[Rfam]
RNA sequence: GUGCCGGCUAAGUGAAUGCUUUGCCACAGUCUUCCGAUCUCUGUCGAAUGUGAAGCCUGGGUCGAGAUUCGCUUAGGCCGGCAU
Numbered sequence: 001g002u003g004c005c006g007g008c009u010a011a012g013u014g015a016a017u018g019c020u021u022u023g024c025c026a027c028a029g030u031c032u033u034c035c036g037a038u039c040u041c042u043g044u045c046g047a048a049u050g051u052g053a054a055g056c057c058u059g060g061g062u063c064g065a066g067a068u069u070c071g072c073u074u075a076g077g078c079c080g081g082c083a084u
Base pairs, nucleotide, nucleotide: 004081005080006079009075010074011073012072013071014070015069016068017067019066020065021064023062024061025060027059028058029057
Shown here is an 84-nucleotide RNA sequence from Caenorhabditis japonica, a member of the family "mir-86 microRNA precursor family". The family has 9 seed sequences and 60 matches in Rfam 15.1. Its family is annotated with RISC complex and miRNA-mediated post-transcriptional gene silencing in the Gene Ontology. On this family, see Ruby et al., Cell 2006: "Large-scale sequencing reveals 21U-RNAs and additional microRNAs and endogenous siRNAs in C. elegans".